[Rfam]
RNA sequence: GGGUCAAUGCUGAGACAUCAUUGUCUUGAAGAGAGAUGAUGACCUGAAAAUCAUGAUCAAUAGGAUUAUGAUGAAGAUAC
Numbered sequence: 001g002g003g004u005c006a007a008u009g010c011u012g013a014g015a016c017a018u019c020a021u022u023g024u025c026u027u028g029a030a031g032a033g034a035g036a037u038g039a040u041g042a043c044c045u046g047a048a049a050a051u052c053a054u055g056a057u058c059a060a061u062a063g064g065a066u067u068a069u070g071a072u073g074a075a076g077a078u079a080c
Stems, first nucleotide, its partner, number of pairs: 003080002005073002008070002
RNA: Small nucleolar RNA SNORD115
Organism: Diceros bicornis